[Rfam]
RNA sequence: ACUUGGAAAGAAGGCAAGAUGUUGGCAAAGCUGUUGAUCAUAAGAACCCUGCUAUGCCAUCAUAUUGCCAUUUUUCUGUACC
Numbered sequence: 001a002c003u004u005g006g007a008a009a010g011a012a013g014g015c016a017a018g019a020u021g022u023u024g025g026c027a028a029a030g031c032u033g034u035u036g037a038u039c040a041u042a043a044g045a046a047c048c049c050u051g052c053u054a055u056g057c058c059a060u061c062a063u064a065u066u067g068c069c070a071u072u073u074u075u076c077u078g079u080a081c082c
Stems, first nucleotide, its partner, number of pairs: 005077007013069005019063003023059005029053003
Background: mir-31 microRNA precursor family: an 82-nucleotide sequence from Cynoglossus semilaevis. Rfam 15.1 lists 1,181 matches to the family in 783 species. Rfam links the family to the GO terms RISC complex and gene silencing by miRNA. For this family Rfam cites "The small RNA profile during Drosophila melanogaster development" (Aravin et al., Dev Cell, 2003). The family's consensus secondary structure was predicted with RNAalifold. It scores 70 bits against the family's covariance model.